This 84-nucleotide RNA sequence from Manihot esculenta belongs to the Rfam family "tRNA". Transfer RNA (tRNA) molecules are approximately 80 nucleotides in length.

[Rfam]
RNA sequence: GCUGGUUUGCCCGAGAGGUUAAGGGGGAAGACUUAAGAUCUUCUGCAUAUAAAAUGCGCAUGGGUUCGAACCCCAUAGCCAGCA
Number, nucleotide and partner (000 for none) at each position: 001g083002c082003u081004g080005g079006u078007u077008u000009g000010c025011c024012c023013g000014a000015g000016a000017g000018g000019u000020u000021a000022a000023g012024g011025g010026g000027g043028a042029a041030g040031a039032c000033u000034u000035a000036a000037g000038a000039u031040c030041u029042u028043c027044u000045g000046c000047a000048u000049a000050u000051a000052a000053a000054a000055u000056g000057c000058g000059c000060a076061u075062g074063g073064g072065u000066u000067c000068g000069a000070a000071c000072c064073c063074c062075a061076u060077a007078g006079c005080c004081a003082g002083c001084a000